This 78-nucleotide RNA sequence from Phascolarctos cinereus belongs to the Rfam family "mir-147 microRNA precursor family". The organism belongs to Phascolarctos, within Eukaryota. Rfam 15.1 lists 757 matches to the family in 593 species. Pairs were carried over by alignment from the consensus structure, which was predicted with RNAalifold. On this family, see Kawaji et al., BMC Genomics 2008: "Hidden layers of human small RNAs".
[Rfam]
RNA sequence: UAUGAAUCUGGUGGAAACAUUUCUGCACAAACUAGACUACUGAAACCAGUGAGAGGAAGUUUUUAUGCUGCAUUUUUA
Numbered sequence: 001u002a003u004g005a006a007u008c009u010g011g012u013g014g015a016a017a018c019a020u021u022u023c024u025g026c027a028c029a030a031a032c033u034a035g036a037c038u039a040c041u042g043a044a045a046c047c048a049g050u051g052a053g054a055g056g057a058a059g060u061u062u063u064u065a066u067g068c069u070g071c072a073u074u075u076u077u078a
Stems, first nucleotide, its partner, number of pairs: 001078002004075004009070005015064002019060006026053001028051002032049002